This 74-nucleotide RNA from Oryctolagus cuniculus belongs to the Rfam family "Small nucleolar RNA SNORD72". snoRNA HBII-240 belongs to the CD family of snoRNAs. The literature on the family includes a 2001 paper in EMBO J by Huttenhofer et al., "RNomics: an experimental approach that identifies 201 candidates for novel, small, non-messenger RNAs in mouse".
[Rfam]
RNA sequence: AGAUUAUAUAUGAUGUUGCAAAUGUCUGAACUUAUGAAGAAAAUAAUGAUUUUGAUGUUUAACUGAGAUAAGCA
Numbered sequence: 001a002g003a004u005u006a007u008a009u010a011u012g013a014u015g016u017u018g019c020a021a022a023u024g025u026c027u028g029a030a031c032u033u034a035u036g037a038a039g040a041a042a043a044u045a046a047u048g049a050u051u052u053u054g055a056u057g058u059u060u061a062a063c064u065g066a067g068a069u070a071a072g073c074a
Stems, first nucleotide, its partner, number of pairs: 002073001004071004